[Rfam]
RNA sequence: CUCCUCGCUCAAAGAAUCGCAUUCAAAGCUUACGCACAGGAGAGAGAAGAGAAUAGCCCUUCACGGGCUUAUUUUAUUUUCUCUUCAGACCGCAACUACUAGCUUUGGGAGAAAGUCCCCGGACACCCUGCGCCCCCGUCUUAAAACCGCGAGGGUUCCUCACAACAAGCCAGGCACUGCGGAAACGCGCCGCCAUAGAAGCAUUUCUCAUUGCGGCUUACGCCUUUUUUCCUUCCCUUCUCUUUUCUCACUCUUCUUUUAGAAGGGAGGAGGAAAGAAAGAAGGGCUCGUCGCUGUUCCUACCCGACUCUGUGGAAGUUUUAUUCUGCAGAGAAAACAAUGGUGGUUUGGACGGGAUGGGGCCUUUUUGGCGAGGGAUAGGUUGCCAUUCGUCGUGUUUCGAUAGUCAUGCGAUUGCUUGGUUUCCCAUGUGUAUUUUGAUUAUAUAUGUGUGAAAUCAAGUAACUCGAUGGGGCUUAUUCAUGAGGCGAGGA
Numbered sequence: 001c002u003c004c005u006c007g008c009u010c011a012a013a014g015a016a017u018c019g020c021a022u023u024c025a026a027a028g029c030u031u032a033c034g035c036a037c038a039g040g041a042g043a044g045a046g047a048a049g050a051g052a053a054u055a056g057c058c059c060u061u062c063a064c065g066g067g068c069u070u071a072u073u074u075u076a077u078u079u080u081c082u083c084u085u086c087a088g089a090c091c092g093c094a095a096c097u098a099c100u101a102g103c104u105u106u107g108g109g110a111g112a113a114a115g116u117c118c119c120c121g122g123a124c125a126c127c128c129u130g131c132g133c134c135c136c137c138g139u140c141u142u143a144a145a146a147c148c149g150c151g152a153g154g155g156u157u158c159c160u161c162a163c164a165a166c167a168a169g170c171c172a173g174g175c176a177c178u179g180c181g182g183a184a185a186c187g188c189g190c191c192g193c194c195a196u197a198g199a200a201g202c203a204u205u206u207c208u209c210a211u212u213g214c215g216g217c218u219u220a221c222g223c224c225u226u227u228u229u230u231c232c233u234u235c236c237c238u239u240c241u242c243u244u245u246u247c248u249c250a251c252u253c254u255u256c257u258u259u260u261a262g263a264a265g266g267g268a269g270g271a272g273g274a275a276a277g278a279a280a281g282a283a284g285g286g287c288u289c290g291u292c293g294c295u296g297u298u299c300c301u302a303c304c305c306g307a308c309u310c311u312g313u314g315g316a317a318g319u320u321u322u323a324u325u326c327u328g329c330a331g332a333g334a335a336a337a338c339a340a341u342g343g344u345g346g347u348u349u350g351g352a353c354g355g356g357a358u359g360g361g362g363c364c365u366u367u368u369u370g371g372c373g374a375g376g377g378a379u380a381g382g383u384u385g386c387c388a389u390u391c392g393u394c395g396u397g398u399u400u401c402g403a404u405a406g407u408c409a410u411g412c413g414a415u416u417g418c419u420u421g422g423u424u425u426c427c428c429a430u431g432u433g434u435a436u437u438u439u440g441a442u443u444a445u446a447u448a449u450g451u452g453u454g455a456a457a458u459c460a461a462g463u464a465a466c467u468c469g470a471u472g473g474g475g476c477u478u479a480u481u482c483a484u485g486a487g488g489c490g491a492g493g494a
Stems, first nucleotide, its partner, number of pairs: 002494007009486003015416006023109001024107006039086010113478003117475004145157004305373002308371002314367003326362002329359001418462009
Annotation: The record is a 494-nucleotide sequence from Histoplasma ohiense, which matches "RNase MRP" in Rfam. The match comes from Rfam's covariance-model search (100 bits). Clan: RNaseP clan. The source organism's lineage runs through Eukaryota, saccharomyceta, Pezizomycotina, Onygenales and Histoplasma. A reference for the family is Schmitt et al. (1993), "Secondary structure of RNase MRP RNA as predicted by phylogenetic comparison", FASEB J. Rfam classes the family as a ribozyme.